[Rfam]
RNA sequence: CCCAUGGGGAUCCGCGAUCUCCCCACGAGGCGACAGCCGAAGCUCGCGUUCCACCUCAACCUUGUUUCCAAGGAGGAACGCAGAUG
Numbered sequence: 001c002c003c004a005u006g007g008g009g010a011u012c013c014g015c016g017a018u019c020u021c022c023c024c025a026c027g028a029g030g031c032g033a034c035a036g037c038c039g040a041a042g043c044u045c046g047c048g049u050u051c052c053a054c055c056u057c058a059a060c061c062u063u064g065u066u067u068c069c070a071a072g073g074a075g076g077a078a079c080g081c082a083g084a085u086g
Stems, first nucleotide, its partner, number of pairs: 005025006046081006
Shown here is an 86-nucleotide sequence from Halovulum dunhuangense, a member of the family "chrB-a RNA". By type it is a cis-regulatory element. A search with the family's covariance model found it, with a score of 65 bits.